[Rfam]
RNA sequence: GGCUUAUCAGUGAUGUUCUAAAAAUAAAUGUCUGAACUUAUGAAUACUAUAUUGAUUUCAGCAUUUUAACUGAGAUAAGCU
Number, nucleotide and partner (000 for none) at each position: 001g000002g080003c079004u078005u077006a076007u075008c074009a000010g000011u000012g000013a000014u000015g000016u000017u000018c000019u000020a000021a000022a000023a000024a000025u000026a000027a000028a000029u000030g000031u000032c000033u000034g000035a000036a000037c000038u000039u000040a000041u000042g000043a000044a000045u000046a000047c000048u000049a000050u000051a000052u000053u000054g000055a000056u000057u000058u000059c000060a000061g000062c000063a000064u000065u000066u000067u000068a000069a000070c000071u000072g000073a000074g008075a007076u006077a005078a004079g003080c002081u000